[Rfam]
RNA sequence: AUACGUGUAGGGUGGAGAUGUACAAGCGUGGAGCGAAUGCCUCGCCCCGCCAGGAAGCGGCCAAUUGGUCCUCCGGCGGCGAGCCGGGCAAGUUCUGGCACCUGGGGUGCCCGCGUUCCACGGUUUGAUUCCUCCUCCUGGCUGAGUGCUUUUUGCGAACACACAAGCAGGACGCGUCAUUCCGCCGGCAAUGGCAUAUGGCCUUGCCGGGCGGCCCGGGCAGUACUACGCCCCGACGCACCUGAACACCGACCGUGAGAAGUCGUGUGUGCCGAACGCCGUUUCCGGCAGCCCGGAAACCGA
Number, nucleotide and partner (000 for none) at each position: 001a000002u000003a000004c000005g000006u000007g000008u000009a000010g000011g000012g000013u000014g135015g134016a133017g132018a000019u000020g000021u000022a000023c127024a126025a125026g124027c122028g121029u120030g119031g118032a117033g114034c113035g112036a000037a000038u000039g000040c000041c000042u000043c000044g000045c000046c000047c000048c000049g000050c000051c000052a000053g000054g000055a000056a000057g000058c000059g000060g000061c000062c000063a000064a000065u000066u000067g000068g000069u000070c000071c000072u000073c000074c000075g000076g000077c000078g000079g000080c000081g000082a000083g089084c088085c000086g000087g000088g084089c083090a000091a000092g000093u000094u000095c000096u000097g111098g110099c109100a108101c000102c000103u000104g000105g000106g000107g000108u100109g099110c098111c097112c035113g034114c033115g000116u000117u032118c031119c030120a029121c028122g027123g000124u026125u025126u024127g023128a000129u000130u000131c000132c017133u016134c015135c014136u172137c171138c170139u169140g168141g000142c000143u000144g000145a000146g000147u000148g000149c000150u000151u000152u000153u000154u000155g000156c000157g000158a000159a000160c000161a000162c000163a000164c000165a000166a000167g000168c140169a139170g138171g137172a136173c000174g000175c238176g237177u236178c235179a000180u000181u000182c214183c213184g212185c211186c000187g000188g000189c206190a205191a204192u000193g203194g202195c201196a000197u000198a000199u000200g000201g195202c194203c193204u191205u190206g189207c000208c000209g000210g000211g185212c184213g183214g182215c000216c000217c000218g233219g232220g231221c230222a000223g000224u000225a000226c000227u000228a000229c000230g221231c220232c219233c218234c000235g178236a177237c176238g175239c000240a000241c000242c000243u000244g000245a000246a270247c269248a268249c267250c265251g264252a263253c262254c000255g000256u000257g000258a000259g000260a000261a000262g253263u252264c251265g250266u000267g249268u248269g247270u246271g000272c000273c000274g000275a000276a000277c000278g000279c000280c000281g300282u299283u298284u297285c296286c295287g294288g000289c000290a000291g000292c000293c000294c287295g286296g285297a284298a283299a282300c281301c000302g000303a000
rne-II RNA: a 303-nucleotide RNA from Pseudomonas sp. URIL14HWK12:I9. The family's RNA type in Rfam is cis-regulatory element.